[Rfam]
RNA sequence: CCAACGGUUCUUCUAAGAACCAACAAUAUAUAUAUAUAUAUAUAU
Numbered sequence: 001c002c003a004a005c006g007g008u009u010c011u012u013c014u015a016a017g018a019a020c021c022a023a024c025a026a027u028a029u030a031u032a033u034a035u036a037u038a039u040a041u042a043u044a045u
Stems, first nucleotide, its partner, number of pairs: 006021006
RNA: Histone 3' UTR stem-loop
Organism: Leptobrachium leishanense